This 73-nucleotide RNA sequence from Ectothiorhodospiraceae bacterium WFHF3C12 belongs to the Rfam family "tRNA". From the family's description: Transfer RNA (tRNA) molecules are approximately 80 nucleotides in length. The family's consensus secondary structure is taken from published work. Lineage of the source: Bacteria > Pseudomonadota > Gammaproteobacteria > Chromatiales > Ectothiorhodospiraceae.

RNA sequence: GCUCCCAUCGUCUAGUGGUCCAGGACGCCGCCCUCUCAAGGCGGUAACCGGGGUUCAAAUCCCCGUGGGAGCG
Numbered sequence: 001g002c003u004c005c006c007a008u009c010g011u012c013u014a015g016u017g018g019u020c021c022a023g024g025a026c027g028c029c030g031c032c033c034u035c036u037c038a039a040g041g042c043g044g045u046a047a048c049c050g051g052g053g054u055u056c057a058a059a060u061c062c063c064c065g066u067g068g069g070a071g072c073g
Stems, first nucleotide, its partner, number of pairs: 001072007010026004028044005049065005